A member of the RNA family "TPP riboswitch aptamer (THI element)" from Nitrospirillum viridazoti, 110 nucleotides long. The base pairs follow the family's consensus structure, which is taken from published work. NCBI's taxonomy places the organism under Bacteria, Alphaproteobacteria, Azospirillaceae, Nitrospirillum, Nitrospirillum viridazoti.

RNA sequence: CGCCAUCGACUGGGGUGCCGCCCGCCUGACCAUCAGGCCCGCGGCUGAGAUCAGACCCAUGGAACCUGCUCCGGAUCAUGCCGGCGAAGGGAGAUCGCGAGACCGUGACC
Numbered sequence: 001c002g003c004c005a006u007c008g009a010c011u012g013g014g015g016u017g018c019c020g021c022c023c024g025c026c027u028g029a030c031c032a033u034c035a036g037g038c039c040c041g042c043g044g045c046u047g048a049g050a051u052c053a054g055a056c057c058c059a060u061g062g063a064a065c066c067u068g069c070u071c072c073g074g075a076u077c078a079u080g081c082c083g084g085c086g087a088a089g090g091g092a093g094a095u096c097g098c099g100a101g102a103c104c105g106u107g108a109c110c
Base pairs, nucleotide, nucleotide: 007097008096009095011059012058013057014056016053017045018044019043020042021041065090066089067088071084072083073082074081
Overview: Gene Ontology term of the family: thiamine pyrophosphate binding.